[Rfam]
RNA sequence: GCCCGUGACGAGGGGCGCCCCGGGUAACUACCCGCAAGGCUGAGAUGCACCCUUUGAACCUGAUCUGGUUUGAACCAGCGUAGGGACGUCGACGGCGCAUUCC
Numbered sequence: 001g002c003c004c005g006u007g008a009c010g011a012g013g014g015g016c017g018c019c020c021c022g023g024g025u026a027a028c029u030a031c032c033c034g035c036a037a038g039g040c041u042g043a044g045a046u047g048c049a050c051c052c053u054u055u056g057a058a059c060c061u062g063a064u065c066u067g068g069u070u071u072g073a074a075c076c077a078g079c080g081u082a083g084g085g086a087c088g089u090c091g092a093c094g095g096c097g098c099a100u101u102c103c
Base pairs, nucleotide, nucleotide: 006091007090008089009088010087011053012052013051014050016047017040018039019038059084060083061082062081065078066077067076068075
Shown here is a 103-nucleotide sequence from Hartmannibacter diazotrophicus, a member of the family "TPP riboswitch aptamer (THI element)". Lineage of the source: Bacteria > Pseudomonadati > Pseudomonadota > Alphaproteobacteria > Hartmannibacter.